[Rfam]
RNA sequence: AUAUGCCUGGCUCCCUGUAUGCCAUUUUCAGAGACCAUCGGUACAUCGGUUGCCUUUGUGAAUGGCGUGCGAGGAGCCAUGCAUAU
Number, nucleotide and partner (000 for none) at each position: 001a086002u085003a084004u083005g082006c081007c000008u079009g078010g077011c076012u075013c074014c073015c000016u071017g070018u069019a068020u067021g066022c065023c064024a063025u000026u000027u060028u000029c058030a000031g000032a000033g000034a000035c000036c000037a000038u000039c000040g000041g000042u000043a000044c000045a000046u000047c000048g000049g000050u000051u000052g000053c000054c000055u000056u000057u000058g029059u000060g027061a000062a000063u024064g023065g022066c021067g020068u019069g018070c017071g016072a000073g014074g013075a012076g011077c010078c009079a008080u000081g006082c005083a004084u003085a002086u001
The record is an 86-nucleotide RNA from Protea cynaroides, which matches "mir-160 microRNA precursor family" in Rfam. The literature on the family includes a 2002 paper in Cell by Rhoades et al., "Prediction of plant microRNA targets". The base pairs follow the family's consensus structure, which was predicted with PFOLD. It scores 72 bits against the family's covariance model.